[Rfam]
RNA sequence: UUGGUUAGAACUCAGCUUAACCCGUCAUCGCAAAGAUGGCGGAUGGGGUUCGCCACGCCGGCAGCGAACUCCAUUGGCGGGGCUUUCCGCCAGGCCUCCAUGGGGGCCAACGGGACAUAACAGUCAAC
Numbered sequence: 001u002u003g004g005u006u007a008g009a010a011c012u013c014a015g016c017u018u019a020a021c022c023c024g025u026c027a028u029c030g031c032a033a034a035g036a037u038g039g040c041g042g043a044u045g046g047g048g049u050u051c052g053c054c055a056c057g058c059c060g061g062c063a064g065c066g067a068a069c070u071c072c073a074u075u076g077g078c079g080g081g082g083c084u085u086u087c088c089g090c091c092a093g094g095c096c097u098c099c100a101u102g103g104g105g106g107c108c109a110a111c112g113g114g115a116c117a118u119a120a121c122a123g124u125c126a127a128c
Base pairs, nucleotide, nucleotide: 022042023041024040025039026038027037028036029035047070048069049068050067051066052065053064076091077090078089079088080087081086093108094107095106096105097104098103
RNA: rmf RNA